Record summary: This 90-nucleotide sequence from Hordeum vulgare belongs to the Rfam family "small nucleolar RNA snoR126". Pairs were carried over by alignment from the consensus structure, which was predicted with RNAalifold. A search with the family's covariance model found it, with a score of 46 bits. The family's RNA type in Rfam is C/D-box small nucleolar RNA.
[Rfam]
RNA sequence: UGGCUGUGAUGACAAUAAGAUUACUUCUUCAUACCUUACUUUCAGUUAAGGACCAAAUCUGAUGAAUUUAUUUGUGCGUGUCUGAGCCGG
Numbered sequence: 001u002g003g004c005u006g007u008g009a010u011g012a013c014a015a016u017a018a019g020a021u022u023a024c025u026u027c028u029u030c031a032u033a034c035c036u037u038a039c040u041u042u043c044a045g046u047u048a049a050g051g052a053c054c055a056a057a058u059c060u061g062a063u064g065a066a067u068u069u070a071u072u073u074g075u076g077c078g079u080g081u082c083u084g085a086g087c088c089g090g
Stems, first nucleotide, its partner, number of pairs: 001089004